[Rfam]
RNA sequence: AAGUAGCGGUGAAGAUGCCGCUUACCCGCGAACGGACGGAAAGACCCCGUGAACCUUUACUGUAGCUUGGCAUUGUAAAUUGGUGCAGUAUGUGUAGGAUAGGUGGGAGGCUAUGAGGCGUGCACGCCAGUGUGCGCGGAGCCAGCGUUGAAAUACCACCCUUAUUGUAUUGAUUUACUAACGAUAGAGCAACUAUUGGACAUUGCCAGGUGGGCAGUUUGACUGGGGCGGUCGCCUCCGAAAGAGUAACGGAGGCUUACCAAGGUUCCCUCCGGCUGGUUGGUAAUCAGCCAUAGAGCGCAAAGGUAUAAGGGAGCUUAACUGCGAGACCGACGGGUCGAGCAGGUGGGAAACCAGGUCUUAGUGAUCCGGCGGUUCUGAAUGGAAGGGCCGUUGCUCAAAGGAUAAAAGGUACUCCGGGGAUAACAGGCUGAUACCGCCCAAGAGUUCAUAUCGACGGCGGUGUUUGGCACCUCGAUGUCGGCUCAACUCAUCCUGGGGCUGAAGAAGGUCCCAAGGGUUCGGCUGUUCGCCGAUUAAAGAGUUACGCGAGCUGGGUUCAGAACGUCGUGAGACAGUUCGGUCCCUAUCCUUCGUGGG
Number, nucleotide and partner (000 for none) at each position: 001a000002a000003g000004u000005a022006g021007c020008g019009g018010u000011g000012a000013a000014g000015a000016u000017g000018c009019c008020g007021c006022u005023u000024a000025c600026c599027c598028g597029c596030g595031a594032a593033c000034g592035g591036a590037c000038g587039g586040a000041a000042a000043g000044a000045c000046c421047c420048c419049g418050u000051g417052a416053a413054c412055c411056u410057u409058u000059a218060c217061u216062g215063u000064a000065g000066c210067u209068u208069g207070g206071c205072a204073u000074u000075g178076u177077a176078a175079a174080u173081u172082g171083g170084u169085g168086c167087a166088g165089u164090a163091u000092g161093u000094g000095u000096a000097g000098g000099a000100u000101a000102g160103g159104u158105g157106g156107g000108a000109g143110g142111c141112u000113a000114u000115g000116a000117g000118g137119c136120g135121u134122g133123c132124a131125c130126g000127c000128c000129a000130g125131u124132g123133u122134g121135c120136g119137c118138g000139g000140a000141g111142c110143c109144a000145g000146c000147g000148u000149u000150g000151a000152a000153a000154u000155a000156c106157c105158a104159c103160c102161c092162u000163u090164a089165u088166u087167g086168u085169a084170u083171u082172g081173a080174u079175u078176u077177a076178c075179u000180a000181a000182c198183g197184a196185u195186a194187g193188a000189g000190c000191a000192a000193c187194u186195a185196u184197u183198g182199g000200a000201c000202a000203u000204u072205g071206c070207c069208a068209g067210g066211u000212g000213g000214g000215c062216a061217g060218u059219u000220u000221g233222a232223c231224u230225g000226g000227g000228g000229c000230g224231g223232u222233c221234g256235c255236c254237u253238c252239c251240g000241a000242a000243a000244g000245a000246g000247u000248a000249a000250c000251g239252g238253a237254g236255g235256c234257u402258u000259a359260c358261c000262a000263a000264g000265g317266u316267u315268c314269c313270c312271u297272c296273c000274g292275g291276c290277u289278g288279g287280u000281u000282g000283g000284u000285a000286a000287u279288c278289a277290g276291c275292c274293a000294u000295a000296g272297a271298g307299c306300g000301c000302a000303a000304a000305g000306g299307u298308a000309u000310a000311a000312g270313g269314g268315a267316g266317c265318u000319u000320a000321a000322c345323u344324g343325c342326g000327a000328g339329a338330c337331c000332g000333a000334c000335g000336g000337g330338u329339c328340g000341a000342g325343c324344a323345g322346g000347u356348g355349g354350g000351a000352a000353a000354c349355c348356a347357g000358g260359u259360c000361u000362u000363a000364g000365u000366g000367a000368u000369c000370c396371g395372g394373c393374g392375g391376u390377u000378c389379u388380g000381a000382a000383u000384g000385g000386a000387a000388g379389g378390g376391c375392c374393g373394u372395u371396g370397c000398u000399c000400a000401a000402a257403g000404g000405a000406u000407a000408a000409a057410a056411g055412g054413u053414a000415c000416u052417c051418c049419g048420g047421g046422g000423a000424u000425a000426a000427c000428a000429g000430g471431c470432u469433g000434a468435u465436a464437c463438c462439g461440c460441c459442c000443a000444a000445g455446a454447g000448u000449u000450c000451a000452u000453a000454u446455c445456g000457a000458c000459g441460g440461c439462g438463g437464u436465g435466u000467u000468u434469g432470g431471c430472a000473c000474c000475u000476c000477g000478a000479u000480g000481u000482c557483g555484g554485c553486u552487c549488a546489a545490c544491u543492c542493a000494u000495c520496c519497u000498g515499g514500g513501g512502c511503u510504g000505a000506a000507g000508a000509a000510g503511g502512u501513c500514c499515c498516a000517a000518g000519g496520g495521u000522u536523c535524g534525g533526c532527u000528g000529u000530u000531c000532g526533c525534c524535g523536a522537u000538u000539a000540a000541a000542g492543a491544g490545u489546u488547a000548c000549g487550c000551g000552a486553g485554c484555u483556g000557g482558g000559u000560u000561c000562a000563g581564a580565a579566c578567g576568u575569c574570g000571u000572g000573a000574g569575a568576c567577a000578g566579u565580u564581c563582g000583g000584u000585c000586c039587c038588u000589a000590u036591c035592c034593u032594u031595c030596g029597u028598g027599g026600g025
RNA: Bacterial large subunit ribosomal RNA, nucleotides 2180 to 2779